[Rfam]
RNA: small nucleolar RNA snoR143
Organism: Carnegiea gigantea
RNA sequence: CUGCACCCUCUUUCGUAGGAAUCACUAACAAAUAGUGUUAGCCUUUGAGCGAGGGUGCACAAAGAAACAGCUGUGUUUUUUUGAAUGCGGCAGCGGCCAGACAACCGUGGAGAUGCAUCCACAGAUGGGCAACCCAAAAAUGCUGCCUGUCUACUAAUUCCAUCUCACAUUU
Numbered sequence: 001c002u003g004c005a006c007c008c009u010c011u012u013u014c015g016u017a018g019g020a021a022u023c024a025c026u027a028a029c030a031a032a033u034a035g036u037g038u039u040a041g042c043c044u045u046u047g048a049g050c051g052a053g054g055g056u057g058c059a060c061a062a063a064g065a066a067a068c069a070g071c072u073g074u075g076u077u078u079u080u081u082u083g084a085a086u087g088c089g090g091c092a093g094c095g096g097c098c099a100g101a102c103a104a105c106c107g108u109g110g111a112g113a114u115g116c117a118u119c120c121a122c123a124g125a126u127g128g129g130c131a132a133c134c135c136a137a138a139a140a141u142g143c144u145g146c147c148u149g150u151c152u153a154c155u156a157a158u159u160c161c162a163u164c165u166c167a168c169a170u171u172u
Base pairs, nucleotide, nucleotide: 002059003058004057005056006055007054008053009052012049013048014047015046017044018043019042022040024038025037110166111165112164113163114162115161117159128148129147130145131144